[Rfam]
RNA sequence: CGUAUCCACGGUCCUGCAUCCGCGGAUUGAACCAGCCACGUAGUAUGUCUAUAAUACGUGGUUGGUUGAAUCCGCAGAUGUGAAACCCGCGGAUAC
Numbered sequence: 001c002g003u004a005u006c007c008a009c010g011g012u013c014c015u016g017c018a019u020c021c022g023c024g025g026a027u028u029g030a031a032c033c034a035g036c037c038a039c040g041u042a043g044u045a046u047g048u049c050u051a052u053a054a055u056a057c058g059u060g061g062u063u064g065g066u067u068g069a070a071u072c073c074g075c076a077g078a079u080g081u082g083a084a085a086c087c088c089g090c091g092g093a094u095a096c
Stems, first nucleotide, its partner, number of pairs: 002096006015082006022075001024073005030067013044053003
About this RNA:
Rfam assigns this 96-nucleotide RNA from Equus caballus to the family "mir-9080 microRNA precursor family". Pairs were carried over by alignment from the consensus structure, which was predicted with RNAalifold.